[Rfam]
RNA: Small nucleolar RNA SNORA70
RNA sequence: CUGCAGUCAAUUAAGCCGACCAGACAGAGUGCUGUACUGCUCUGGUGUGCAAUGGCUGCAGACAGUAAUGUCUCUGGUUGUGUAUGCGCUUCACUGGCGGUGUGUUGUGCUCUAAGGGACCUCUGAGACACUA
Numbered sequence: 001c002u003g004c005a006g007u008c009a010a011u012u013a014a015g016c017c018g019a020c021c022a023g024a025c026a027g028a029g030u031g032c033u034g035u036a037c038u039g040c041u042c043u044g045g046u047g048u049g050c051a052a053u054g055g056c057u058g059c060a061g062a063c064a065g066u067a068a069u070g071u072c073u074c075u076g077g078u079u080g081u082g083u084a085u086g087c088g089c090u091u092c093a094c095u096g097g098c099g100g101u102g103u104g105u106u107g108u109g110c111u112c113u114a115a116g117g118g119a120c121c122u123c124u125g126a127g128a129c130a131c132u133a
Stems, first nucleotide, its partner, number of pairs: 002051004019046004025039003076121003087109003092104001